[Rfam]
RNA: mir-302 microRNA precursor family
RNA sequence: CCUCUACUUUAACAUGGGGGCACUUGCUGUGACAUACUAAAUUAAGUGCUUCCAUGUUUGAGUGUGG
Number, nucleotide and partner (000 for none) at each position: 001c000002c067003u066004c000005u064006a063007c062008u061009u000010u000011a058012a057013c056014a055015u054016g053017g052018g051019g050020g049021c048022a047023c046024u045025u044026g043027c000028u041029g000030u000031g000032a000033c000034a000035u000036a000037c000038u000039a000040a000041a028042u000043u026044a025045a024046g023047u022048g021049c020050u019051u018052c017053c016054a015055u014056g013057u012058u011059u000060g000061a008062g007063u006064g005065u000066g003067g002